[Rfam]
RNA sequence: ACAACGGCUCUUUUAAGAGCCACCAAAUCAUCUUAAAAGAGCAUUU
Number, nucleotide and partner (000 for none) at each position: 001a000002c000003a000004a000005c000006g021007g020008c019009u018010c017011u016012u000013u000014u000015a000016a011017g010018a009019g008020c007021c006022a000023c000024c000025a000026a000027a000028u000029c000030a000031u000032c000033u000034u000035a000036a000037a000038a000039g000040a000041g000042c000043a000044u000045u000046u000

This 46-nucleotide RNA from Sander lucioperca belongs to the Rfam family "Histone 3' UTR stem-loop". Pairs were carried over by alignment from the consensus structure, which is taken from published work. It is annotated as a cis-regulatory element. On this family, see Williams and Marzluff, Nucleic Acids Res 1995: "The sequence of the stem and flanking sequences at the 3' end of histone mRNA are critical determinants for the binding of the stem-loop binding protein".